A member of the RNA family "Group II catalytic intron D1-D4-3" from Paenibacillus sp. UNCCL117, 201 nucleotides long. The match comes from Rfam's covariance-model search (44 bits).
RNA sequence: UCCACCGCGAGGUGGAAAUCUAGAAGGAAGCUCAAGGCAAAUGCACGAGCCAACGUACAUGAACUGGAUUUGAGGCAGGGUUAGCUGGAUGAAGUCGCCAAGACUGGUCGAUGCAACAGGGCGUAUUCAUUUUCGAGAACUCGAAAAGUUGGAAGUUUAACACGGGCUGAAGUGUUGAUGUGCCUGGAAGAAGUUAAGGUC
Numbered sequence: 001u002c003c004a005c006c007g008c009g010a011g012g013u014g015g016a017a018a019u020c021u022a023g024a025a026g027g028a029a030g031c032u033c034a035a036g037g038c039a040a041a042u043g044c045a046c047g048a049g050c051c052a053a054c055g056u057a058c059a060u061g062a063a064c065u066g067g068a069u070u071u072g073a074g075g076c077a078g079g080g081u082u083a084g085c086u087g088g089a090u091g092a093a094g095u096c097g098c099c100a101a102g103a104c105u106g107g108u109c110g111a112u113g114c115a116a117c118a119g120g121g122c123g124u125a126u127u128c129a130u131u132u133u134c135g136a137g138a139a140c141u142c143g144a145a146a147a148g149u150u151g152g153a154a155g156u157u158u159a160a161c162a163c164g165g166g167c168u169g170a171a172g173u174g175u176u177g178a179u180g181u182g183c184c185u186g187g188a189a190g191a192a193g194u195u196a197a198g199g200u201c
Stems, first nucleotide, its partner, number of pairs: 001016006030201001032199002037194002042188001044186002047183001051182002064180001068179002075175003081170006087158004094150001096148001
Pairs were carried over by alignment from the consensus structure.